[Rfam]
Small nucleolar RNA snoR111: a 135-nucleotide RNA from Gossypium australe. NCBI's taxonomy places the organism under Eukaryota, Pentapetalae, malvids, Malvoideae, Gossypium. A search with the family's covariance model found it, with a score of 83 bits. The base pairs follow the family's consensus structure, which was predicted with WAR. The literature on the family includes a 2002 paper in Curr Biol by Marker et al., "Experimental RNomics: identification of 140 candidates for small non-messenger RNAs in the plant Arabidopsis thaliana". Gene Ontology terms of the family: RNA processing and nucleolus.
RNA sequence: AAGAAACUUAGGAGACACUUCAUUAGUGUGUCUCUUCAUUGAGGAAGAGCAUUGAGGUAUAUUGAAAGCAAAGGCCGAGAUAUCGUUUCAGUCGUCAUUUUCCUUGUUGACGAUUUGAUUGUUGCUUGUCCACAU
Dot-bracket structure: ......(((((((((((...........))))))....))))).............................((.((((..((((.....(((((((..(.....).))))))).)))).....)))).))....